RNA sequence: GCAAUCUCGGAGGAGAGUCGAAGAAUCGAUAUUCUGGGGGAUACGCGUAAUAAAUAUUCGGGCUGAGUAUUUUUACGUAGGGUAGGUAUCAGCAACCUCUUGUUGUUGAUAGACGGGAUACUAAUGUCACUUAGUGACAUGUGAAUGGGAAACCCAACA
Numbered sequence: 001g002c003a004a005u006c007u008c009g010g011a012g013g014a015g016a017g018u019c020g021a022a023g024a025a026u027c028g029a030u031a032u033u034c035u036g037g038g039g040g041a042u043a044c045g046c047g048u049a050a051u052a053a054a055u056a057u058u059c060g061g062g063c064u065g066a067g068u069a070u071u072u073u074u075a076c077g078u079a080g081g082g083u084a085g086g087u088a089u090c091a092g093c094a095a096c097c098u099c100u101u102g103u104u105g106u107u108g109a110u111a112g113a114c115g116g117g118a119u120a121c122u123a124a125u126g127u128c129a130c131u132u133a134g135u136g137a138c139a140u141g142u143g144a145a146u147g148g149g150a151a152a153c154c155c156a157a158c159a
Stems, first nucleotide, its partner, number of pairs: 006038006045078006052071001054070003087111010125139006